[Rfam]
RNA: Small nucleolar RNA SNORA15
RNA sequence: GCAUGGGCGAAUUCUGCACUAGCUUUCCUCUGUAGCUAAUGCAGUCAGACACUAUGCCAGAAUAAAUUCCUUUUUCACACUCUGGUAUGCUUUUUGUGUGAGAAUGAGCAUGCCCUUGGAAGUGGGAUACAU
Numbered sequence: 001g002c003a004u005g006g007g008c009g010a011a012u013u014c015u016g017c018a019c020u021a022g023c024u025u026u027c028c029u030c031u032g033u034a035g036c037u038a039a040u041g042c043a044g045u046c047a048g049a050c051a052c053u054a055u056g057c058c059a060g061a062a063u064a065a066a067u068u069c070c071u072u073u074u075u076c077a078c079a080c081u082c083u084g085g086u087a088u089g090c091u092u093u094u095u096g097u098g099u100g101a102g103a104a105u106g107a108g109c110a111u112g113c114c115c116u117u118g119g120a121a122g123u124g125g126g127a128u129a130c131a132u
Stems, first nucleotide, its partner, number of pairs: 001057006014044005070125002073122004080118001084114009